[Rfam]
RNA sequence: UAUUUGUUAUGAUGGUCCCAGCAUAAACCACUGGUGGCUGUGACCUGAUUCUAGAAAAUA
Number, nucleotide and partner (000 for none) at each position: 001u060002a059003u058004u057005u056006g000007u000008u000009a000010u000011g000012a000013u000014g045015g044016u043017c042018c000019c040020a039021g038022c037023a000024u000025a000026a000027a000028c034029c033030a000031c000032u000033g029034g028035u000036g000037g022038c021039u020040g019041u000042g017043a016044c015045c014046u000047g000048a000049u000050u000051c000052u000053a000054g000055a000056a005057a004058a003059u002060a001
The family of this 60-nucleotide sequence from Aegithalos caudatus is "Selenocysteine insertion sequence 1". The match comes from Rfam's covariance-model search (36 bits). Taxonomically the source falls in Aegithalos (Eukaryota, Craniata, Vertebrata, Sylvioidea). Rfam describes the family as follows. The incorporation of selenocysteine into a protein sequence is directed by an in-frame UGA codon (usually a stop codon) within the coding region of the mRNA. Selenoprotein mRNAs contain a conserved secondary structure in the 3' UTR that is required for the distinction of UGA stop from UGA selenocysteine. A reference for the family is Walczak et al. (1996), "A novel RNA structural motif in the selenocysteine insertion element of eukaryotic selenoprotein mRNAs", RNA. The base pairs follow the family's consensus structure, which is taken from published work.